A member of the RNA family "Small nucleolar RNA SNORD67" from Electrophorus electricus, 100 nucleotides long. The base pairs follow the family's consensus structure. A reference for the family is Huttenhofer et al. (2001), "RNomics: an experimental approach that identifies 201 candidates for novel, small, non-messenger RNAs in mouse", EMBO J. Its family is annotated with RNA processing and nucleolus in the Gene Ontology.
[Rfam]
RNA sequence: UGGGAUGAUGAGGAGAUCCUGUUUGGUGGAGGAGAUCCUGCAGUGGCGGGAGCCUCCACUCAGAGUCCUGACGACAUGCACAGGGGCCAUCUGACCAGCC
Number, nucleotide and partner (000 for none) at each position: 001u000002g000003g000004g099005a000006u097007g096008a000009u000010g000011a000012g000013g000014a000015g000016a000017u000018c000019c000020u000021g000022u064023u063024u062025g061026g059027u058028g057029g056030a000031g054032g053033a000034g000035a000036u000037c050038c049039u048040g047041c046042a000043g000044u000045g000046g041047c040048g039049g038050g037051a000052g000053c032054c031055u000056c029057c028058a027059c026060u000061c025062a024063g023064a022065g000066u000067c000068c000069u000070g000071a000072c000073g000074a000075c000076a000077u000078g000079c000080a000081c000082a000083g000084g000085g000086g000087c000088c000089a000090u000091c000092u000093g000094a000095c000096c007097a006098g000099c004100c000
Rfam classes the family as a C/D-box small nucleolar RNA.